A member of the RNA family "Histone 3' UTR stem-loop" from Prolemur simus, 45 nucleotides long. The match comes from Rfam's covariance-model search (38 bits). Lineage of the source: Eukaryota > Mammalia > Theria > Lemuridae > Prolemur. The mRNAs of metazoan histone genes lack a poly-A tail. 3' end processing occurs at a site between a highly conserved stem-loop (modelled by this family) and a purine rich region around 20 nts downstream (the histone downstream element, or HDE).
[Rfam]
RNA sequence: CCAAAGGCUCUUUUAAGAGCCACCAAAGUGUCAAAUGAAAGGCUG
Numbered sequence: 001c002c003a004a005a006g007g008c009u010c011u012u013u014u015a016a017g018a019g020c021c022a023c024c025a026a027a028g029u030g031u032c033a034a035a036u037g038a039a040a041g042g043c044u045g
Stems, first nucleotide, its partner, number of pairs: 006021006